This 91-nucleotide RNA from Genlisea aurea belongs to the Rfam family "Small nucleolar RNA R11/Z151". The source organism's lineage runs through Eukaryota, Streptophyta, Spermatophyta, Mesangiospermae and Genlisea. Gene Ontology terms of the family: nucleolus and RNA processing. Pairs were carried over by alignment from the consensus structure, which was predicted with PFOLD. A search with the family's covariance model found it, with a score of 72 bits. For this family Rfam cites "Identification of 66 box C/D snoRNAs in Arabidopsis thaliana: extensive gene duplications generated multiple isoforms predicting new ribosomal RNA 2'-O-methylation sites" (Barneche et al., J Mol Biol, 2001). Rfam classes the family as a C/D-box small nucleolar RNA.
RNA sequence: UGGCUUGUGAUGAUACAUAAAUAAUCUUAGCGGAUUUCAUUGAGAUCAGAUCUUCUGAUCAUUGAUCUUAUUGUUACACACACUGAAGCCA
Numbered sequence: 001u002g003g004c005u006u007g008u009g010a011u012g013a014u015a016c017a018u019a020a021a022u023a024a025u026c027u028u029a030g031c032g033g034a035u036u037u038c039a040u041u042g043a044g045a046u047c048a049g050a051u052c053u054u055c056u057g058a059u060c061a062u063u064g065a066u067c068u069u070a071u072u073g074u075u076a077c078a079c080a081c082a083c084u085g086a087a088g089c090c091a
Base pairs, nucleotide, nucleotide: 001091002090003089004088005087